[Rfam]
RNA: c-di-GMP-I riboswitch aptamer
Organism: Anaerotruncus massiliensis
RNA sequence: UUCCAUAUUUGGCAAACCUGCCUAAAGGCAGGGACGCAAAGCUAUAGGGUCUAAUGCGUAAGCGAUGACAGCCAGUUGCAGCA
Numbered sequence: 001u002u003c004c005a006u007a008u009u010u011g012g013c014a015a016a017c018c019u020g021c022c023u024a025a026a027g028g029c030a031g032g033g034a035c036g037c038a039a040a041g042c043u044a045u046a047g048g049g050u051c052u053a054a055u056g057c058g059u060a061a062g063c064g065a066u067g068a069c070a071g072c073c074a075g076u077u078g079c080a081g082c083a
Stems, first nucleotide, its partner, number of pairs: 012037002017032006040077004047073002049069003056063002